[Rfam]
RNA: Bacterial RNase P class A
Organism: Pedobacter insulae
RNA sequence: AAUGUAAGCCAUUCUAUCGCCGCAAUCUUAGAUUGAGGAGGAAAGUCCGGGCAACACAGAGCAUCUCGCUUCCUAACGGGAAGGGAUUUAGGAAUGAAAACCUGAAUUACGGAAAGUGCUACAGAAAAUAAACCUCCCGAUGUAAAUCGGGGAAGGGUGAAAACGUGAGGUAAGAGCUCACGAACUUCUCAAGUGAUUGGGAUUUUGGUAAACCCCGGGAGUUGAAAGACCAAAUAGGCUAACGCACGUAGGGCUGCUCGUCCGAUGUUAGUGGGUAGGUCGUUAAAGAUAAAUGGCAACAUUUAUAUUAGAUUAAUGAUAGAAGCUGAUUUAUCAGCAACAGAACCCGGCUUAUAGGCUUACAUUUUUU
Numbered sequence: 001a002a003u004g005u006a007a008g009c010c011a012u013u014c015u016a017u018c019g020c021c022g023c024a025a026u027c028u029u030a031g032a033u034u035g036a037g038g039a040g041g042a043a044a045g046u047c048c049g050g051g052c053a054a055c056a057c058a059g060a061g062c063a064u065c066u067c068g069c070u071u072c073c074u075a076a077c078g079g080g081a082a083g084g085g086a087u088u089u090a091g092g093a094a095u096g097a098a099a100a101c102c103u104g105a106a107u108u109a110c111g112g113a114a115a116g117u118g119c120u121a122c123a124g125a126a127a128a129u130a131a132a133c134c135u136c137c138c139g140a141u142g143u144a145a146a147u148c149g150g151g152g153a154a155g156g157g158u159g160a161a162a163a164c165g166u167g168a169g170g171u172a173a174g175a176g177c178u179c180a181c182g183a184a185c186u187u188c189u190c191a192a193g194u195g196a197u198u199g200g201g202a203u204u205u206u207g208g209u210a211a212a213c214c215c216c217g218g219g220a221g222u223u224g225a226a227a228g229a230c231c232a233a234a235u236a237g238g239c240u241a242a243c244g245c246a247c248g249u250a251g252g253g254c255u256g257c258u259c260g261u262c263c264g265a266u267g268u269u270a271g272u273g274g275g276u277a278g279g280u281c282g283u284u285a286a287a288g289a290u291a292a293a294u295g296g297c298a299a300c301a302u303u304u305a306u307a308u309u310a311g312a313u314u315a316a317u318g319a320u321a322g323a324a325g326c327u328g329a330u331u332u333a334u335c336a337g338c339a340a341c342a343g344a345a346c347c348c349g350g351c352u353u354a355u356a357g358g359c360u361u362a363c364a365u366u367u368u369u370u
Base pairs, nucleotide, nucleotide: 001366002365003364004363005362006361007360008359009358010357011355012324013323014322015321016320017319018318020038021037023035024034025033026032027031043353044352045351047350048349049348050347051346052224053223054222055221059259060258061257062256064220065219066218067217068216069083070082071081072080073079084110085108086107087106088105089104090103091102092101111215112214116213117212118209119208120207133156134155135152136151137150138149139148140147141146164182165181166180167179168178169177184204187202188201189200190199191198192197228281229280230279231278238272239271240270241269242268243267251263252262253261254260289306290305291304292303293302294301295300